[Rfam]
RNA: Rhizobiales-2 RNA
Organism: Bradyrhizobium diazoefficiens
RNA sequence: CUGAGGCCGAUCUCACGUGGAUCCUGCGUCCGACACGGGCGCCUCAUCCACCCCGUGUCGUGCCCCGACCCCGCCCGGCUGUCCCCCCGGGCGGGGU
Numbered sequence: 001c002u003g004a005g006g007c008c009g010a011u012c013u014c015a016c017g018u019g020g021a022u023c024c025u026g027c028g029u030c031c032g033a034c035a036c037g038g039g040c041g042c043c044u045c046a047u048c049c050a051c052c053c054c055g056u057g058u059c060g061u062g063c064c065c066c067g068a069c070c071c072c073g074c075c076c077g078g079c080u081g082u083c084c085c086c087c088c089g090g091g092c093g094g095g096g097u
Stems, first nucleotide, its partner, number of pairs: 002015004026063004032059005068097011